[Rfam]
A member of the RNA family "mir-146 microRNA precursor family" from Bagarius yarrelli, 90 nucleotides long.
RNA sequence: CUGAGCAGUUUGCCCUGAGAACUGAAUUCCAUAGAUGGUGGUCAUAUGGAGCUCAUCUAUGGACUCAGUUCUUUUGGCAAUGGGCUCCUU
Numbered sequence: 001c002u003g004a005g006c007a008g009u010u011u012g013c014c015c016u017g018a019g020a021a022c023u024g025a026a027u028u029c030c031a032u033a034g035a036u037g038g039u040g041g042u043c044a045u046a047u048g049g050a051g052c053u054c055a056u057c058u059a060u061g062g063a064c065u066c067a068g069u070u071c072u073u074u075u076g077g078c079a080a081u082g083g084g085c086u087c088c089u090u
Base pairs, nucleotide, nucleotide: 008081009080013076018072019071020070021069022068023067024066025065033058034057035056036055
A reference for the family is Cai et al. (2005), "Kaposi's sarcoma-associated herpesvirus expresses an array of viral microRNAs in latently infected cells", Proc Natl Acad Sci U S A. The organism belongs to Bagarius, within Eukaryota.